[Rfam]
RNA sequence: AUGAGCUAAGGGCAAACUAUCUGAAAAGAUAGGACGCAAAGCUAAGGGUCUAAGGUUUCAUACAGAAACUAUGAUAGCCUGGCUGCCAAU
Numbered sequence: 001a002u003g004a005g006c007u008a009a010g011g012g013c014a015a016a017c018u019a020u021c022u023g024a025a026a027a028g029a030u031a032g033g034a035c036g037c038a039a040a041g042c043u044a045a046g047g048g049u050c051u052a053a054g055g056u057u058u059c060a061u062a063c064a065g066a067a068a069c070u071a072u073g074a075u076a077g078c079c080u081g082g083c084u085g086c087c088a089a090u
Base pairs, nucleotide, nucleotide: 012037013036017032018031019030020029021028022027040084041083042082043081045080046079047078048075049074050073055069056068057067058066